[Rfam]
RNA sequence: GGGCCGCAUGGCCCCACACACAGGCGGGGCAACCCGCCGGAAGCUUACGGAAGACAGAAA
Numbered sequence: 001g002g003g004c005c006g007c008a009u010g011g012c013c014c015c016a017c018a019c020a021c022a023g024g025c026g027g028g029g030c031a032a033c034c035c036g037c038c039g040g041a042a043g044c045u046u047a048c049g050g051a052a053g054a055c056a057g058a059a060a
Stems, first nucleotide, its partner, number of pairs: 001014005023038006
The family of this 60-nucleotide RNA sequence from Rhodobacteraceae bacterium PD-2 is "L2-Alphaproteobacteria ribosomal protein leader". Rfam's curators put it in the seed alignment. The family's RNA type in Rfam is cis-regulatory leader. Pairs were carried over by alignment from the consensus structure, which is taken from published work. On this family, see Eckert and Weinberg, BMC Microbiol 2020: "Discovery of 20 novel ribosomal leader candidates in bacteria and archaea".